RNA sequence: GCCGAGCUCAGUAGCGUGGGCUUGUAACUCAAGUGAGGGCAUCAGUGUGGUGGAAUGUUGAACAUGCCCAGAAGGUAGGGCUUGUGUGACAAUUCUCUGGCCUGCCCUGUCCAAGCAAAGAGUUGGGUCUUGUGGGCCAAGCGAAGGCUUGGGCUGCUGGGCUCCUAAAGUGGGGUGGACUGCGUGAGGCUGGUUUCACAGAGCAACGAAUAGCUCCCGCUCUGUGCAGUGGAAGGAUAACGAGCCAGUGUCAUAUAAGUUCAACGAAUGUCUGAUGGGCUGUUCUAGUUAAACUACCACAUUU
Numbered sequence: 001g002c003c004g005a006g007c008u009c010a011g012u013a014g015c016g017u018g019g020g021c022u023u024g025u026a027a028c029u030c031a032a033g034u035g036a037g038g039g040c041a042u043c044a045g046u047g048u049g050g051u052g053g054a055a056u057g058u059u060g061a062a063c064a065u066g067c068c069c070a071g072a073a074g075g076u077a078g079g080g081c082u083u084g085u086g087u088g089a090c091a092a093u094u095c096u097c098u099g100g101c102c103u104g105c106c107c108u109g110u111c112c113a114a115g116c117a118a119a120g121a122g123u124u125g126g127g128u129c130u131u132g133u134g135g136g137c138c139a140a141g142c143g144a145a146g147g148c149u150u151g152g153g154c155u156g157c158u159g160g161g162c163u164c165c166u167a168a169a170g171u172g173g174g175g176u177g178g179a180c181u182g183c184g185u186g187a188g189g190c191u192g193g194u195u196u197c198a199c200a201g202a203g204c205a206a207c208g209a210a211u212a213g214c215u216c217c218c219g220c221u222c223u224g225u226g227c228a229g230u231g232g233a234a235g236g237a238u239a240a241c242g243a244g245c246c247a248g249u250g251u252c253a254u255a256u257a258a259g260u261u262c263a264a265c266g267a268a269u270g271u272c273u274g275a276u277g278g279g280c281u282g283u284u285c286u287a288g289u290u291a292a293a294c295u296a297c298c299a300c301a302u303u304u
Stems, first nucleotide, its partner, number of pairs: 001040003004023007028037003044303010056291002058288003061284004068278003073273005078262008087253003092249001097248005103242002106236002110233004115227003119223005125164006132157004137152006165170001172217005181210001183208003190201003
The record is a 304-nucleotide RNA from Solanum lycopersicum, which matches "Plant signal recognition particle RNA" in Rfam. For this family Rfam cites "Towards the structure of the mammalian signal recognition particle" (Wild et al., Curr Opin Struct Biol, 2002). Rfam links the family to the GO terms SRP-dependent cotranslational protein targeting to membrane, signal sequence recognition and signal recognition particle, endoplasmic reticulum targeting. Pairs were carried over by alignment from the consensus structure, which is taken from published work. It is one of the family's seed sequences. By type it is a non-coding RNA gene.